[Rfam]
RNA sequence: UCCAUCGCGAGGUGGAAUCUAGAGGAAGCUGGAGGCAAAGCCUCGACCUGAGGUACACGAAUCGCAUCUGAGGCUGUUGCAGUCGGACGAGUUGCCCACAACAAAGUCCGAAGUCGCCAAGGGCUGUGGCAGUAAAUGCGGCGGGUGCAUGACAUGAGGGGAAAGAUUCCGUU
Numbered sequence: 001u002c003c004a005u006c007g008c009g010a011g012g013u014g015g016a017a018u019c020u021a022g023a024g025g026a027a028g029c030u031g032g033a034g035g036c037a038a039a040g041c042c043u044c045g046a047c048c049u050g051a052g053g054u055a056c057a058c059g060a061a062u063c064g065c066a067u068c069u070g071a072g073g074c075u076g077u078u079g080c081a082g083u084c085g086g087a088c089g090a091g092u093u094g095c096c097c098a099c100a101a102c103a104a105a106g107u108c109c110g111a112a113g114u115c116g117c118c119a120a121g122g123g124c125u126g127u128g129g130c131a132g133u134a135a136a137u138g139c140g141g142c143g144g145g146u147g148c149a150u151g152a153c154a155u156g157a158g159g160g161g162a163a164a165g166a167u168u169c170c171g172u173u
Base pairs, nucleotide, nucleotide: 001016002015003014004013005012006011028173030171031170032169036165041159042158043157044156045155046146047145048144049143050142062141063140064139065138066137067136073133074132075131077129078128079127080126081125082124083123085109086108087107088106091102092101093100094099